Description
The family of this 90-nucleotide RNA from Flexivirga aerilata is "Glycine riboswitch aptamer". The match comes from Rfam's covariance-model search (62 bits). Taxonomically the source falls in Flexivirga (Bacteria, Actinomycetota, Micrococcales, Dermacoccaceae).
[Rfam]
RNA sequence: CGACACCGGGUGGGAGAGAUCCGCUUACGCGGAGCGCCGAAGGGGCAACACUCCUCAGAACCUCUCAGGCACCAGGACCAUCCGGGUGAG
Numbered sequence: 001c002g003a004c005a006c007c008g009g010g011u012g013g014g015a016g017a018g019a020u021c022c023g024c025u026u027a028c029g030c031g032g033a034g035c036g037c038c039g040a041a042g043g044g045g046c047a048a049c050a051c052u053c054c055u056c057a058g059a060a061c062c063u064c065u066c067a068g069g070c071a072c073c074a075g076g077a078c079c080a081u082c083c084g085g086g087u088g089a090g
Stems, first nucleotide, its partner, number of pairs: 006085008020033004036070003039066002043064003